[Rfam]
Rfam assigns this 163-nucleotide RNA from Pusillibacter faecalis to the family "glmS glucosamine-6-phosphate activated ribozyme aptamer". NCBI's taxonomy places the organism under Bacteria, Bacillati, Bacillota, Oscillospiraceae, Pusillibacter. By type it is a riboswitch. A reference for the family is Winkler et al. (2004), "Control of gene expression by a natural metabolite-responsive ribozyme", Nature. Pairs were carried over by alignment from the consensus structure, which is taken from published work.

RNA sequence: CGCCUAUCAUAAGCGCCAGUGCCUGCUGGAAAGAACGCGGCAGGACGACGAGGAGAAGAGAGGAUCGAACGUUUCGGCGGAUGCUCUUCCAUGUCUGCAGACAUGUGACACAGCUGACAAAUAUGCGGGUGACUGCAAAACAGAGGGGCUGUGACUGCAGUAA
Numbered sequence: 001c002g003c004c005u006a007u008c009a010u011a012a013g014c015g016c017c018a019g020u021g022c023c024u025g026c027u028g029g030a031a032a033g034a035a036c037g038c039g040g041c042a043g044g045a046c047g048a049c050g051a052g053g054a055g056a057a058g059a060g061a062g063g064a065u066c067g068a069a070c071g072u073u074u075c076g077g078c079g080g081a082u083g084c085u086c087u088u089c090c091a092u093g094u095c096u097g098c099a100g101a102c103a104u105g106u107g108a109c110a111c112a113g114c115u116g117a118c119a120a121a122u123a124u125g126c127g128g129g130u131g132a133c134u135g136c137a138a139a140a141c142a143g144a145g146g147g148g149c150u151g152u153g154a155c156u157g158c159a160g161u162a163a
Stems, first nucleotide, its partner, number of pairs: 022044006055089005065077004090105006109153007124137005
Dot-bracket structure: .....................((((((...........))))))..........(((((.....((((.....)))).......)))))((((((....))))))...(((((((........(((((....))))).........)))))))..........